Shown here is an 81-nucleotide sequence from Paenibacillus methanolicus, a member of the family "ZMP/ZTP riboswitch aptamer (pfl RNA motif)".

RNA sequence: AACGUGAUGCGUAACUGGCGGAGCAUGGGUAACCAUGAGGGAGCGCAUUAACGGUAAUAGCCGUACGCCUGGGCAAAGGUA
Numbered sequence: 001a002a003c004g005u006g007a008u009g010c011g012u013a014a015c016u017g018g019c020g021g022a023g024c025a026u027g028g029g030u031a032a033c034c035a036u037g038a039g040g041g042a043g044c045g046c047a048u049u050a051a052c053g054g055u056a057a058u059a060g061c062c063g064u065a066c067g068c069c070u071g072g073g074c075a076a077a078g079g080u081a
Base pairs, nucleotide, nucleotide: 005050006049007048008047009046010045011044012043015040016039017069018068019067020066025036026035027034028033058076060074061073062072
Lineage of the source: Bacteria > Bacillati > Bacilli > Caryophanales > Paenibacillus.